Notes:
A member of the RNA family "ZMP/ZTP riboswitch aptamer (pfl RNA motif)" from Duganella sp. Leaf126, 124 nucleotides long.

[Rfam]
RNA sequence: UACGUCUCACGUAACUGGCGAAAAGCUGCGAUCGGCCCCAGAAUGGUGCGCGGAUCAAUCGGCGAAAGAUGGACAUCCAUCGGGAAACGUGAGAUUUCAACAGCCGUUCGCCUGGGCAGCCCUU
Numbered sequence: 001u002a003c004g005u006c007u008c009a010c011g012u013a014a015c016u017g018g019c020g021a022a023a024a025g026c027u028g029c030g031a032u033c034g035g036c037c038c039c040a041g042a043a044u045g046g047u048g049c050g051c052g053g054a055u056c057a058a059u060c061g062g063c064g065a066a067a068g069a070u071g072g073a074c075a076u077c078c079a080u081c082g083g084g085a086a087a088c089g090u091g092a093g094a095u096u097u098c099a100a101c102a103g104c105c106g107u108u109c110g111c112c113u114g115g116g117c118a119g120c121c122c123u124u
Stems, first nucleotide, its partner, number of pairs: 004095009015084002017112005069080004101119001103117003

It scores 59 bits against the family's covariance model. Rfam links the family to the GO terms regulation of purine nucleotide biosynthetic process and one-carbon metabolic process. The family's consensus secondary structure is taken from published work.